Description:
The family of this 87-nucleotide sequence from Araneus ventricosus is "HDV ribozyme from F. prausnitzii". On this family, see Webb et al., Science 2009: "Widespread occurrence of self-cleaving ribozymes". It scores 47 bits against the family's covariance model. Rfam 15.1 lists 3,803 matches to the family in 91 species. Gene Ontology term of the family: catalytic activity.
RNA sequence: GGGGAACAACAGUAGCACACCUCCUCGUGGUGUUCCCUGGGCAACGAUGCAGUUCUAGUUCGAAACUGCAUUGGCAAAGAGGCUACU
Numbered sequence: 001g002g003g004g005a006a007c008a009a010c011a012g013u014a015g016c017a018c019a020c021c022u023c024c025u026c027g028u029g030g031u032g033u034u035c036c037c038u039g040g041g042c043a044a045c046g047a048u049g050c051a052g053u054u055c056u057a058g059u060u061c062g063a064a065a066c067u068g069c070a071u072u073g074g075c076a077a078a079g080a081g082g083c084u085a086c087u
Base pairs, nucleotide, nucleotide: 001038002037003036004035005034006033007032019031020030021029045073046072047071048070049069050068051067052066053065054064